[Rfam]
RNA sequence: CAAUACGCACGAAAAGAGAGAUAUGCGACAACAUAUCUCCCUUGUGUAGAACCGUUAAAAAGACGGUAGCUUUAAAUAAAUGUUUAACCA
Numbered sequence: 001c002a003a004u005a006c007g008c009a010c011g012a013a014a015a016g017a018g019a020g021a022u023a024u025g026c027g028a029c030a031a032c033a034u035a036u037c038u039c040c041c042u043u044g045u046g047u048a049g050a051a052c053c054g055u056u057a058a059a060a061a062g063a064c065g066g067u068a069g070c071u072u073u074a075a076a077u078a079a080a081u082g083u084u085u086a087a088c089c090a
Stems, first nucleotide, its partner, number of pairs: 022035004051067006
Shown here is a 90-nucleotide RNA sequence from Vagococcus acidifermentans, a member of the family "RNA anti-toxin A". The source organism's lineage runs through Bacteria, Bacillota, Bacilli, Enterococcaceae and Vagococcus. The family's consensus secondary structure was predicted with RNAalifold. The match comes from Rfam's covariance-model search (55 bits).